[Rfam]
RNA sequence: GGAGAUGAAAACACGGCCCCGUCGGGUAGUCGGGGCGCGGCCCACGCCGCCAGUAACCUGCCUCCUUGGUUGUCCCUUCUCC
Numbered sequence: 001g002g003a004g005a006u007g008a009a010a011a012c013a014c015g016g017c018c019c020c021g022u023c024g025g026g027u028a029g030u031c032g033g034g035g036c037g038c039g040g041c042c043c044a045c046g047c048c049g050c051c052a053g054u055a056a057c058c059u060g061c062c063u064c065c066u067u068g069g070u071u072g073u074c075c076c077u078u079c080u081c082c
Stems, first nucleotide, its partner, number of pairs: 001082005016036006037050005060070003

The record is an 82-nucleotide RNA from a Coriobacteriaceae bacterium, which matches "azaaromatic riboswitch aptamer (yjdF RNA)" in Rfam.
A search with the family's covariance model found it, with a score of 60 bits.